[Rfam]
RNA sequence: GCUUUGUGAAAGACAUGGGUAGUGAGAUGUUUUCUAUUCCAACCGUCUCACUACCUUGUCUUUCAUGUGGCG
Numbered sequence: 001g002c003u004u005u006g007u008g009a010a011a012g013a014c015a016u017g018g019g020u021a022g023u024g025a026g027a028u029g030u031u032u033u034c035u036a037u038u039c040c041a042a043c044c045g046u047c048u049c050a051c052u053a054c055c056u057u058g059u060c061u062u063u064c065a066u067g068u069g070g071c072g
Stems, first nucleotide, its partner, number of pairs: 008064008017056003021052009
RNA: mir-71 microRNA precursor family
Organism: Ladona fulva